mir-344 microRNA precursor family: a 65-nucleotide RNA sequence from Peromyscus maniculatus. Lineage of the source: Eukaryota > Euteleostomi > Sarcopterygii > Boreoeutheria > Peromyscus maniculatus. The match comes from Rfam's covariance-model search (55 bits).

RNA sequence: UUACCAGCCAGCCACCUGGCUAAAUCCCAGCUAUUAGCUGGUUUUAGUCAAAGCCUGGCUAUAAA
Numbered sequence: 001u002u003a004c005c006a007g008c009c010a011g012c013c014a015c016c017u018g019g020c021u022a023a024a025u026c027c028c029a030g031c032u033a034u035u036a037g038c039u040g041g042u043u044u045u046a047g048u049c050a051a052a053g054c055c056u057g058g059c060u061a062u063a064a065a
Stems, first nucleotide, its partner, number of pairs: 007059003011055001013053001017050008027041005
About this RNA: For this family Rfam cites "Mammalian microRNAs: experimental evaluation of novel and previously annotated genes" (Chiang et al., Genes Dev, 2010). Its family is annotated with miRNA-mediated post-transcriptional gene silencing and RISC complex in the Gene Ontology.